[Rfam]
RNA sequence: UUUAAUCUUCAGGGCAGGGUUAAAGUCCCUACCGGUGGUAUAGUCCACGAGCAAGAUUGCAUGAUUUGGUGUAAUUCCAAAACCGACAGUACAGUCUGGAUGAAAGAAGAUUAAA
Numbered sequence: 001u002u003u004a005a006u007c008u009u010c011a012g013g014g015c016a017g018g019g020u021u022a023a024a025g026u027c028c029c030u031a032c033c034g035g036u037g038g039u040a041u042a043g044u045c046c047a048c049g050a051g052c053a054a055g056a057u058u059g060c061a062u063g064a065u066u067u068g069g070u071g072u073a074a075u076u077c078c079a080a081a082a083c084c085g086a087c088a089g090u091a092c093a094g095u096c097u098g099g100a101u102g103a104a105a106g107a108a109g110a111u112u113a114a115a
Stems, first nucleotide, its partner, number of pairs: 003113008017029003031095002033085002035048004043083002065081005087098003
The family of this 115-nucleotide RNA sequence from Mycoplasma amphoriforme is "FMN riboswitch aptamer (RFN element)". Lineage of the source: Bacteria > Bacillati > Mollicutes > Mycoplasmatales > Mycoplasma amphoriforme.